Rfam assigns this 158-nucleotide sequence from Tardiphaga sp. vice352 to the family "speF leader". Rfam describes the family as follows. This family is a putative regulatory RNA structure that is found upstream of the speF gene encoding ornithine decarboxylase in Agrobacterium tumefaciens and other alpha-proteobacteria. Pairs were carried over by alignment from the consensus structure, which was predicted with RNAalifold.
RNA sequence: UGCUGGCUUUCCAUCAGCCAGCGCGAAUACCGAAGAGGCUUGUCCUUCAUUGCCAGGUGUGCGGUAGGGUAACACCCGACCAAUCCACGGCAGCACUUACGGUCUGUACUUUCGGCUUUGCCGCGCCUCCAUCGCGCGUCGUUGCCCGAAAGCGCUGA
Numbered sequence: 001u002g003c004u005g006g007c008u009u010u011c012c013a014u015c016a017g018c019c020a021g022c023g024c025g026a027a028u029a030c031c032g033a034a035g036a037g038g039c040u041u042g043u044c045c046u047u048c049a050u051u052g053c054c055a056g057g058u059g060u061g062c063g064g065u066a067g068g069g070u071a072a073c074a075c076c077c078g079a080c081c082a083a084u085c086c087a088c089g090g091c092a093g094c095a096c097u098u099a100c101g102g103u104c105u106g107u108a109c110u111u112u113c114g115g116c117u118u119u120g121c122c123g124c125g126c127c128u129c130c131a132u133c134g135c136g137c138g139u140c141g142u143u144g145c146c147c148g149a150a151a152g153c154g155c156u157g158a
Base pairs, nucleotide, nucleotide: 001023002022003021004020005019006018007017008016037054038053039052061137062136063135105120106119108117109115